[Rfam]
RNA sequence: GGACACGUCUCUGGAGAGUCCCGACGGGCGCCGAAGGUGUAAAGGGUCGUAAGGCUUUAAUCUCUCAGGCAAAAGGACAGAGCAAUUUAC
Numbered sequence: 001g002g003a004c005a006c007g008u009c010u011c012u013g014g015a016g017a018g019u020c021c022c023g024a025c026g027g028g029c030g031c032c033g034a035a036g037g038u039g040u041a042a043a044g045g046g047u048c049g050u051a052a053g054g055c056u057u058u059a060a061u062c063u064c065u066c067a068g069g070c071a072a073a074a075g076g077a078c079a080g081a082g083c084a085a086u087u088u089a090c
Stems, first nucleotide, its partner, number of pairs: 009082005020028003030070003033066002037064001039062001043057002
The family of this 90-nucleotide RNA from Dialister micraerophilus is "Glycine riboswitch aptamer". Rfam's curators write: This family represents the bacterial glycine riboswitch.